Rfam assigns this 123-nucleotide sequence from Molossus molossus to the family "Small nucleolar RNA SNORA26".
The base pairs follow the family's consensus structure, which was predicted with RNAalifold.
The literature on the family includes a 2001 paper in EMBO J by Huttenhofer et al., "RNomics: an experimental approach that identifies 201 candidates for novel, small, non-messenger RNAs in mouse".
Rfam links the family to the GO terms RNA processing and nucleolus.
Clan: SNORA27 clan.
Rfam classes the family as an H/ACA-box small nucleolar RNA.
[Rfam]
RNA sequence: GUGCCCUUCUAAGGUUGACGCAGUGCCUUUAGGAGGCUAACAGAGAAGGGUACAGAAAGUCUCCAUAAAACCCAGAGAAGAGAUGGUAAAACUCCUCUUUGGAUCCUGUCUGGAAUCACAAGC
Number, nucleotide and partner (000 for none) at each position: 001g000002u052003g051004c050005c049006c048007u047008u046009c045010u044011a000012a000013g000014g041015u040016u039017g038018a000019c036020g000021c033022a000023g000024u000025g000026c000027c000028u000029u000030u000031a000032g000033g021034a000035g000036g019037c000038u017039a016040a015041c014042a000043g000044a010045g009046a008047a007048g006049g005050g004051u003052a002053c000054a000055g000056a000057a000058a000059g117060u000061c000062u114063c113064c112065a111066u000067a000068a000069a000070a000071c000072c102073c101074a100075g099076a098077g097078a096079a000080g094081a093082g092083a000084u091085g000086g000087u000088a000089a000090a000091a084092c082093u081094c080095c000096u078097c077098u076099u075100u074101g073102g072103a000104u000105c000106c000107u000108g000109u000110c000111u065112g064113g063114a062115a000116u000117c059118a000119c000120a000121a000122g000123c000